[Rfam]
RNA sequence: AAGCAUGAUAGAGGCGCGGCUGACAAGAGUACGUUUCCAGCAGGCCCCGGGCAGGGGUGGAAGCGGAAAGGGGAUGCCGCCGAGGCUAAGGAGCGCCCAGCUCCUUUUGCCGGGCUGCGGGAGAAGAUCCCGCAGACUGUCGCCUUCCUUGCAGGGAGGGCGGAGCGCUGUUGUGAUU
Number, nucleotide and partner (000 for none) at each position: 001a000002a000003g000004c000005a000006u173007g172008a171009u170010a169011g168012a000013g000014g000015c000016g080017c079018g078019g077020c076021u000022g000023a000024c072025a000026a000027g000028a000029g000030u000031a000032c065033g064034u063035u062036u061037c060038c059039a058040g000041c000042a000043g000044g000045c000046c000047c000048c000049g000050g000051g000052c000053a000054g000055g000056g000057g000058u039059g038060g037061a036062a035063g034064c033065g032066g000067a000068a000069a000070g000071g000072g024073g000074a000075u000076g020077c019078c018079g017080c016081c000082g000083a000084g111085g110086c109087u000088a106089a105090g104091g103092a102093g101094c100095g000096c000097c000098c000099a000100g094101c093102u092103c091104c090105u089106u088107u000108u000109g086110c085111c084112g138113g137114g000115c135116u134117g133118c132119g131120g130121g129122a128123g000124a000125a000126g000127a000128u122129c121130c120131c119132g118133c117134a116135g115136a000137c113138u112139g000140u163141c162142g161143c160144c159145u158146u157147c000148c000149u000150u000151g000152c000153a000154g000155g000156g000157a146158g145159g144160g143161c142162g141163g140164a000165g000166c000167g000168c011169u010170g009171u008172u007173g006174u000175g000176a000177u000178u000
About this RNA: Rfam assigns this 178-nucleotide RNA from Neglectibacter sp. 59 to the family "Lysine riboswitch aptamer". The base pairs follow the family's consensus structure, which is taken from published work. Lineage of the source: Bacteria > Bacillota > Clostridia > Eubacteriales > Neglectibacter. A search with the family's covariance model found it, with a score of 103 bits.